[Rfam]
RNA: cow-rumen-1 RNA
RNA sequence: UCAGUGGUUCCCGAGUUAGAGCUUAACGGGAUAAAUCCACCGCCGGAUACAAUCGAAGAGG
Numbered sequence: 001u002c003a004g005u006g007g008u009u010c011c012c013g014a015g016u017u018a019g020a021g022c023u024u025a026a027c028g029g030g031a032u033a034a035a036u037c038c039a040c041c042g043c044c045g046g047a048u049a050c051a052a053u054c055g056a057a058g059a060g061g
Base pairs, nucleotide, nucleotide: 004040005039006038007037009031010030011029012028013027014023015022016021